Rfam assigns this 106-nucleotide RNA from Massilia cavernae to the family "Group II catalytic intron D1-D4-1". Rfam links the family to the GO term Group II intron splicing. It scores 35 bits against the family's covariance model. The literature on the family includes a 2001 paper in Trends Genet by Bonen and Vogel, "The ins and outs of group II introns". The family has 237 seed sequences and 2,508 matches in Rfam 15.1. The pairing is the family consensus, mapped onto this sequence. NCBI's taxonomy places the organism under Bacteria, Pseudomonadota, Betaproteobacteria, Burkholderiales, Massilia.
RNA sequence: CGCCUUGUGCCUGAAAGGGCGACGGCGCGAGCCGGAGCGGGGUCUCAGCAGAGGUCAUAGUAGUUGGAGGUAGCGCCGCGAAGGCUCAACUCCGCCGACGAAGGAC
Number, nucleotide and partner (000 for none) at each position: 001c029002g028003c000004c000005u024006u000007g000008u021009g020010c019011c018012u017013g000014a000015a000016a000017g012018g011019g010020c009021g008022a000023c000024g005025g000026c000027g000028c002029g001030a000031g000032c000033c000034g000035g000036a000037g000038c000039g000040g000041g000042g000043u000044c053045u052046c051047a000048g000049c000050a000051g046052a045053g044054g106055u105056c104057a000058u000059a000060g000061u000062a000063g099064u098065u097066g096067g095068a000069g000070g000071u000072a000073g000074c000075g000076c000077c000078g000079c000080g000081a000082a000083g000084g000085c000086u000087c000088a000089a000090c000091u000092c000093c000094g000095c067096c066097g065098a064099c063100g000101a000102a000103g000104g056105a055106c054